RNA sequence: GUCCUUGCUCCGGGGUGUGCCAAGGCGCUGAGAUGCAGCGGGUUUGCAUGACAAACCCGCUGCGAACCCGACGAACUUGAUCCGGUUCAUACCGGCGGAAGAAGAGCCCGAUGUGCCGCC
Number, nucleotide and partner (000 for none) at each position: 001g000002u000003c000004c000005u000006u000007g107008c106009u105010c104011c070012g069013g068014g067015g000016u064017g028018u027019g026020c025021c000022a000023a000024g000025g020026c019027g018028c017029u000030g000031a000032g000033a000034u000035g063036c062037a061038g060039c059040g058041g057042g056043u055044u054045u053046g052047c000048a000049u000050g000051a000052c046053a045054a044055a043056c042057c041058c040059g039060c038061u037062g036063c035064g016065a000066a000067c014068c013069c012070g011071a000072c000073g000074a000075a000076c101077u100078u099079g000080a000081u000082c095083c094084g093085g092086u000087u000088c000089a000090u000091a000092c085093c084094g083095g082096c000097g000098g000099a078100a077101g076102a000103a000104g010105a009106g008107c007108c000109c000110g000111a000112u000113g000114u000115g000116c000117c000118g000119c000120c000